[Rfam]
RNA sequence: GUAGUCGAUCGCGACUGGCGUUGAGGUGGGUACCACCGGGGAGCGAUCACCACAUCGAGACAUCGGGACCGUUCGCCUGGGCCCCACGU
Numbered sequence: 001g002u003a004g005u006c007g008a009u010c011g012c013g014a015c016u017g018g019c020g021u022u023g024a025g026g027u028g029g030g031u032a033c034c035a036c037c038g039g040g041g042a043g044c045g046a047u048c049a050c051c052a053c054a055u056c057g058a059g060a061c062a063u064c065g066g067g068a069c070c071g072u073u074c075g076c077c078u079g080g081g082c083c084c085c086a087c088g089u
Stems, first nucleotide, its partner, number of pairs: 004051001007048006015040002017077004026036004066084002069081002